[Rfam]
Shown here is an 89-nucleotide RNA sequence from Microcebus murinus, a member of the family "Small nucleolar RNA SNORD103/SNORD85". The pairing is the family consensus, mapped onto this sequence. By type it is a C/D-box small nucleolar RNA.
Nucleotides: 089
Base pairs, nucleotide, nucleotide: 002088003087004086005085006084
Number, partner (000 for none) and nucleotide at each position: 001000a002088c003087u004086g005085g006084u007000g008000u009000u010000a011000g012000g013000g014000a015000u016000g017000a018000c019000a020000c021000a022000u023000u024000u025000g026000c027000c028000a029000u030000c031000a032000c033000u034000g035000a036000g037000a038000u039000g040000a041000u042000a043000g044000u045000u046000u047000g048000g049000u050000a051000u052000u053000g054000a055000g056000a057000a058000u059000c060000u061000u062000g063000g064000u065000u066000u067000u068000u069000g070000u071000a072000c073000a074000c075000a076000u077000c078000a079000g080000c081000u082000g083000a084006g085005c086004u087003a088002g089000a
Annotation:
On this family, see Huttenhofer et al., EMBO J 2001: "RNomics: an experimental approach that identifies 201 candidates for novel, small, non-messenger RNAs in mouse".